[Rfam]
RNA sequence: GCUUUCGAGGAGCGUUGCAAGGGCCCCCUGUUGAUCAGGCGAGUUGCCCCCAGGCUCGAAAGACACGUGAACCCUCAUGUGAUGUGCAACCGCGCUCACCCGCA
Numbered sequence: 001g002c003u004u005u006c007g008a009g010g011a012g013c014g015u016u017g018c019a020a021g022g023g024c025c026c027c028c029u030g031u032u033g034a035u036c037a038g039g040c041g042a043g044u045u046g047c048c049c050c051c052a053g054g055c056u057c058g059a060a061a062g063a064c065a066c067g068u069g070a071a072c073c074c075u076c077a078u079g080u081g082a083u084g085u086g087c088a089a090c091c092g093c094g095c096u097c098a099c100c101c102g103c104a
Stems, first nucleotide, its partner, number of pairs: 002062007021049004
RNA: SAH (S-adenosyl-L-homocysteine) riboswitch aptamer